[Rfam]
RNA sequence: AACGGUUUUUCCUGCUGACGGAACGUUGUGGAGCACCACAGUGCAGGAAAUGCCGGGAACUUUAUGCCGACCGUCUGGGCAGCCUUG
Dot-bracket structure: ..((((.(((((..(.[[[[[......((((....))))...)..))))).)))).........((((..]]]]]..))))......

Shown here is an 87-nucleotide sequence from Faecalibacterium sp. CAG:82, a member of the family "ZMP/ZTP riboswitch aptamer (pfl RNA motif)".
The source organism's lineage runs through Bacteria, Bacillota, Eubacteriales, Oscillospiraceae and Faecalibacterium.
It scores 58 bits against the family's covariance model.